RNA sequence: UUUUGUGCUCUGCUAUGAGAACUGAAUUCCAUAGAUGGUGACAUCUUCAGGUGUCAUCUAUGGGCUCAGUUCUUUUGGCAUGGCACAUAACC
Numbered sequence: 001u002u003u004u005g006u007g008c009u010c011u012g013c014u015a016u017g018a019g020a021a022c023u024g025a026a027u028u029c030c031a032u033a034g035a036u037g038g039u040g041a042c043a044u045c046u047u048c049a050g051g052u053g054u055c056a057u058c059u060a061u062g063g064g065c066u067c068a069g070u071u072c073u074u075u076u077g078g079c080a081u082g083g084c085a086c087a088u089a090a091c092c
Stems, first nucleotide, its partner, number of pairs: 008083002011080003018073008033059004

mir-146 microRNA precursor family: a 92-nucleotide RNA from Salarias fasciatus. On this family, see Lagos-Quintana et al., Curr Biol 2002: "Identification of tissue-specific microRNAs from mouse". Lineage of the source: Eukaryota > Teleostomi > Neopterygii > Blenniidae > Salarias. Gene Ontology terms of the family: miRNA-mediated post-transcriptional gene silencing and RISC complex.